[Rfam]
Background: The record is a 76-nucleotide RNA from Alligator mississippiensis, which matches "Mammalian CPEB3 ribozyme" in Rfam. Lineage of the source: Eukaryota > Chordata > Euteleostomi > Sauria > Alligator.
RNA sequence: GGUUGCAAGUUUGAAGCCAUAGCAGAAGCACUCAAGGCACAGCCUGUCAGAUUCCAACAAAUCUGUGAAUUCUGUU
Numbered sequence: 001g002g003u004u005g006c007a008a009g010u011u012u013g014a015a016g017c018c019a020u021a022g023c024a025g026a027a028g029c030a031c032u033c034a035a036g037g038c039a040c041a042g043c044c045u046g047u048c049a050g051a052u053u054c055c056a057a058c059a060a061a062u063c064u065g066u067g068a069a070u071u072c073u074g075u076u
Stems, first nucleotide, its partner, number of pairs: 013044001016043002021076007028040001048065006